[Rfam]
RNA sequence: AGAUUGAAGGUGCAAGAUGUAUCCGAAGCGGAGGAACCAUUUUAGGGGCGAAUUUCAGCGGCUCUUACCUGAGACAUGAGACGUGUUUCAAGCCUGUUUUACGGCGAGUGAAUUUGGCGCACUGUUAGAGCUUUGUCCGCUGAAAGGGGUAUCUCUCAACCCUAGCCCGUCAGCUAACUUCGUCGGCAGUGGGAGAGGAUAA
Number, nucleotide and partner (000 for none) at each position: 001a000002g000003a000004u027005u026006g000007a000008a000009g000010g000011u000012g000013c000014a000015a000016g000017a000018u000019g000020u000021a000022u000023c000024c000025g000026a005027a004028g183029c182030g181031g180032a179033g178034g000035a000036a000037c000038c045039a000040u000041u000042u000043u000044a000045g038046g168047g167048g166049c000050g000051a000052a000053u000054u144055u143056c142057a141058g140059c139060g138061g137062c000063u000064c000065u000066u000067a000068c000069c000070u000071g000072a000073g000074a000075c000076a000077u000078g000079a000080g000081a000082c000083g000084u000085g000086u000087u000088u000089c000090a000091a000092g000093c000094c000095u000096g000097u000098u000099u000100u000101a000102c000103g000104g000105c000106g000107a000108g000109u000110g000111a000112a000113u000114u000115u000116g000117g000118c000119g000120c000121a000122c000123u000124g000125u000126u000127a000128g000129a000130g000131c000132u000133u000134u000135g000136u000137c061138c060139g059140c058141u057142g056143a055144a054145a000146g000147g162148g161149g160150u159151a000152u000153c000154u000155c000156u000157c000158a000159a150160c149161c148162c147163u000164a000165g000166c048167c047168c046169g000170u000171c000172a000173g000174c000175u000176a000177a000178c033179u032180u031181c030182g029183u028184c000185g000186g000187c000188a000189g000190u000191g000192g000193g000194a000195g000196a000197g000198g000199a000200u000201a000202a000
The record is a 202-nucleotide RNA sequence from Synechococcales cyanobacterium C42_A2020_086, which matches "c-di-AMP riboswitch aptamer (ydaO/yuaA leader)" in Rfam.